Background:
The record is a 94-nucleotide RNA sequence from Sorghum bicolor, which matches "MIR5387 microRNA precursor family" in Rfam.
RNA sequence: ACGUGGCUCUGACCGGUGCUAAAGGGUCUCUGCCCCAACAACACCUGUCAGUAGCCGUGGGGCAGGAUCCUUUAGCACCGGUUCGUGUUACGAA
Number, nucleotide and partner (000 for none) at each position: 001a000002c000003g091004u090005g089006g088007c087008u000009c085010u000011g083012a082013c081014c080015g079016g078017u077018g076019c075020u074021a073022a072023a071024g070025g069026g068027u067028c000029u066030c065031u000032g000033c000034c061035c060036c059037a000038a058039c057040a000041a000042c000043a000044c000045c051046u050047g000048u000049c000050a046051g045052u000053a000054g000055c000056c000057g039058u038059g036060g035061g034062g000063c000064a000065g030066g029067a027068u026069c025070c024071u023072u022073u021074a020075g019076c018077a017078c016079c015080g014081g013082u012083u011084c000085g009086u000087g007088u006089u005090a004091c003092g000093a000094a000
The family has 2 seed sequences and 1,029 matches in Rfam 15.1. Its family is annotated with RISC complex and miRNA-mediated post-transcriptional gene silencing in the Gene Ontology.